[Rfam]
RNA sequence: CAAGUAGACCGCCUUAUCGCUGGCUUAUGUCAGAGGAAAGUCUGGGCACCAUAGAGCAGAAUAGCGGGUAACGCCCGUCCGUUGUAAAGCGAGGACAAGUGCAACAGAAAGUAUGUACAGUUAGGCUGUAGUGAAACCAGGUAAACUCUAUUCGGUGAAAUGCCAUGUAUACCAACGUUAAGUGCUGCUCGUGCAUGUUGGAGGGUAGGCAGAUGGAGCUUUUGAGUAAUUGAAAGCCUAGAUAAAUGAUAAGGGAAAAUUUAUUUUUUACAGAACCCGGCUUAUAGGUCUACUUUUUUA
Numbered sequence: 001c002a003a004g005u006a007g008a009c010c011g012c013c014u015u016a017u018c019g020c021u022g023g024c025u026u027a028u029g030u031c032a033g034a035g036g037a038a039a040g041u042c043u044g045g046g047c048a049c050c051a052u053a054g055a056g057c058a059g060a061a062u063a064g065c066g067g068g069u070a071a072c073g074c075c076c077g078u079c080c081g082u083u084g085u086a087a088a089g090c091g092a093g094g095a096c097a098a099g100u101g102c103a104a105c106a107g108a109a110a111g112u113a114u115g116u117a118c119a120g121u122u123a124g125g126c127u128g129u130a131g132u133g134a135a136a137c138c139a140g141g142u143a144a145a146c147u148c149u150a151u152u153c154g155g156u157g158a159a160a161u162g163c164c165a166u167g168u169a170u171a172c173c174a175a176c177g178u179u180a181a182g183u184g185c186u187g188c189u190c191g192u193g194c195a196u197g198u199u200g201g202a203g204g205g206u207a208g209g210c211a212g213a214u215g216g217a218g219c220u221u222u223u224g225a226g227u228a229a230u231u232g233a234a235a236g237c238c239u240a241g242a243u244a245a246a247u248g249a250u251a252a253g254g255g256a257a258a259a260u261u262u263a264u265u266u267u268u269u270a271c272a273g274a275a276c277c278c279g280g281c282u283u284a285u286a287g288g289u290c291u292a293c294u295u296u297u298u299u300a
Stems, first nucleotide, its partner, number of pairs: 002295009011285001012254007020033005038283003042280005047157004054190004059153005064078005079093001080091004094148002099146002101142002116130006161211004172201005182194004218237008
Background:
The family of this 300-nucleotide RNA from Flavobacterium sp. xlx-221 is "Bacterial RNase P class A". Lineage of the source: Bacteria > Pseudomonadati > Bacteroidota > Flavobacteriia > Flavobacterium. Pairs were carried over by alignment from the consensus structure, which is taken from published work.